Shown here is an 88-nucleotide RNA sequence from Thermosediminibacter oceani, a member of the family "c-di-GMP-I-GGC riboswitch aptamer". Pairs were carried over by alignment from the consensus structure, which is taken from published work.
RNA sequence: CCUGUAAAGGGCAAACCCGGUGAAAGCCGGGGGCGCAAAGCUACGGGCCUAAGGGUAAUAAAGCCUAUCGGCCGCCGGGCUGCCGGGG
Numbered sequence: 001c002c003u004g005u006a007a008a009g010g011g012c013a014a015a016c017c018c019g020g021u022g023a024a025a026g027c028c029g030g031g032g033g034c035g036c037a038a039a040g041c042u043a044c045g046g047g048c049c050u051a052a053g054g055g056u057a058a059u060a061a062a063g064c065c066u067a068u069c070g071g072c073c074g075c076c077g078g079g080c081u082g083c084c085g086g087g088g
Base pairs, nucleotide, nucleotide: 001088003085004084011036012035016031017030018029019028020027021026034074039081040080041079042078044077045076046075047072048071049070